[Rfam]
RNA sequence: UUGCAGCAGUUACCCUUUCUAGUCUGGCACGUGGGACUUCAGAGGGCGUCCAUCUGCGACAGUGAGUGGUGAGUUGCCUGGUCCAGCGUCAGUAUUCUGAUGGUGGCGUUAGACUUGCCAGAGGGAA
Numbered sequence: 001u002u003g004c005a006g007c008a009g010u011u012a013c014c015c016u017u018u019c020u021a022g023u024c025u026g027g028c029a030c031g032u033g034g035g036a037c038u039u040c041a042g043a044g045g046g047c048g049u050c051c052a053u054c055u056g057c058g059a060c061a062g063u064g065a066g067u068g069g070u071g072a073g074u075u076g077c078c079u080g081g082u083c084c085a086g087c088g089u090c091a092g093u094a095u096u097c098u099g100a101u102g103g104u105g106g107c108g109u110u111a112g113a114c115u116u117g118c119c120a121g122a123g124g125g126a127a
Stems, first nucleotide, its partner, number of pairs: 003057004018043003022039001023036003067120007075113001081107003087102006
RNA: Small nucleolar RNA SNORA56